[Rfam]
RNA sequence: AUGUAUUCCAUACUUUUAGUAUUUGUCUAGUAGGUUUCCUCAAAGAGGAAGCCCCC
Numbered sequence: 001a002u003g004u005a006u007u008c009c010a011u012a013c014u015u016u017u018a019g020u021a022u023u024u025g026u027c028u029a030g031u032a033g034g035u036u037u038c039c040u041c042a043a044a045g046a047g048g049a050a051g052c053c054c055c056c
Stems, first nucleotide, its partner, number of pairs: 033053008
Rfam assigns this 56-nucleotide RNA sequence from Hucho hucho to the family "U7 small nuclear RNA". The base pairs follow the family's consensus structure, which was predicted with PFOLD. A reference for the family is Spycher et al. (1994), "3' end processing of mouse histone pre-mRNA: evidence for additional base-pairing between U7 snRNA and pre-mRNA", Nucleic Acids Res. Rfam's curators write: Animal histone pre-mRNAs are spliced by a different mechanism than nuclear pre-mRNAs and self-splicing introns. It scores 43 bits against the family's covariance model. Lineage of the source: Eukaryota > Opisthokonta > Metazoa > Bilateria > Hucho.